[Rfam]
Background: Plastid-rpl16 group II-D1 intron: a 44-nucleotide sequence from Kingdonia uniflora. Rfam's curators write: Plastid-rpl16 is a non-coding RNA (ncRNA) recognised in plastids. The base pairs follow the family's consensus structure, which was predicted with LocARNA. A search with the family's covariance model found it, with a score of 55 bits. Rfam links the family to the GO term Group II intron splicing.
RNA sequence: AAGCUAGAGUCAAUAAAGACUGAGAAAAUUGACUCAUAAACAAA
Numbered sequence: 001a002a003g004c005u006a007g008a009g010u011c012a013a014u015a016a017a018g019a020c021u022g023a024g025a026a027a028a029u030u031g032a033c034u035c036a037u038a039a040a041c042a043a044a
Base pairs, nucleotide, nucleotide: 005038006037007035008034009033010032011031012030013029014028